[Rfam]
RNA sequence: UUUGGGAAAUGAAGAUAGAUUAUUUGCAACAUAUGCUGUUGCUAUUAUGCGGCAGCUUUUGCUGAAAAUUUGCACGUCAGUCUGAUCCCGAU
Numbered sequence: 001u002u003u004g005g006g007a008a009a010u011g012a013a014g015a016u017a018g019a020u021u022a023u024u025u026g027c028a029a030c031a032u033a034u035g036c037u038g039u040u041g042c043u044a045u046u047a048u049g050c051g052g053c054a055g056c057u058u059u060u061g062c063u064g065a066a067a068a069u070u071u072g073c074a075c076g077u078c079a080g081u082c083u084g085a086u087c088c089c090g091a092u
Base pairs, nucleotide, nucleotide: 002091003090004089005088006087007086

A member of the RNA family "Small nucleolar RNA Z122" from Asparagus officinalis, 92 nucleotides long.
It is annotated as a C/D-box small nucleolar RNA.
The base pairs follow the family's consensus structure, which was predicted with PFOLD.
A reference for the family is Chen et al. (2003), "The high diversity of snoRNAs in plants: identification and comparative study of 120 snoRNA genes from Oryza sativa", Nucleic Acids Res.